[Rfam]
RNA: Mammalian CPEB3 ribozyme
RNA sequence: GGUUGCAAGUUUGAGGCCAUAGCAAAAGAGCUCAUUGCAUGGCCUGUCAGAUUCCAGUGAAUCCGUAAAUUCUGCU
Numbered sequence: 001g002g003u004u005g006c007a008a009g010u011u012u013g014a015g016g017c018c019a020u021a022g023c024a025a026a027a028g029a030g031c032u033c034a035u036u037g038c039a040u041g042g043c044c045u046g047u048c049a050g051a052u053u054c055c056a057g058u059g060a061a062u063c064c065g066u067a068a069a070u071u072c073u074g075c076u
Stems, first nucleotide, its partner, number of pairs: 015044004021076004026071002028040001030038001048065001050063005